[Rfam]
RNA sequence: AGGGGUUGCAAGGUUGAGGCUACAGCAGAAGCACUUAUGGUACAGCCCUGUCAGAUUCCAACAGAUCUGUGAAAUCUGCU
Number, nucleotide and partner (000 for none) at each position: 001a000002g000003g000004g000005g000006u000007u000008g000009c000010a000011a000012g000013g048014u000015u000016g000017a000018g047019g046020c045021u044022a000023c000024a080025g079026c078027a077028g076029a075030a000031g043032c000033a041034c000035u000036u000037a000038u000039g000040g000041u033042a000043c031044a021045g020046c019047c018048c013049u000050g000051u000052c069053a068054g067055a066056u065057u064058c000059c000060a000061a000062c000063a000064g057065a056066u055067c054068u053069g052070u000071g000072a000073a000074a000075u029076c028077u027078g026079c025080u024